[Rfam]
RNA sequence: GGAGGCGUCAGGGUUCCUGGUGGUCCCCGCGGUCUUCAAAACCGACGAGACCAAGUAGCUUGGUCUGGCGGGUUCGAUUCCCGUCCGCCUCC
Numbered sequence: 001g002g003a004g005g006c007g008u009c010a011g012g013g014u015u016c017c018u019g020g021u022g023g024u025c026c027c028c029g030c031g032g033u034c035u036u037c038a039a040a041a042c043c044g045a046c047g048a049g050a051c052c053a054a055g056u057a058g059c060u061u062g063g064u065c066u067g068g069c070g071g072g073u074u075c076g077a078u079u080c081c082c083g084u085c086c087g088c089c090u091c092c
Base pairs, nucleotide, nucleotide: 001092002091003090004089005088006087007086012027013026016023017022030044031043032042033041048066049065050064051063052062069083070082071081072080
A member of the RNA family "Selenocysteine transfer RNA" from Enteractinococcus coprophilus, 92 nucleotides long. The organism belongs to Enteractinococcus, within Bacteria. The family's consensus secondary structure is taken from published work. The family is grouped with related families in Rfam's "tRNA clan".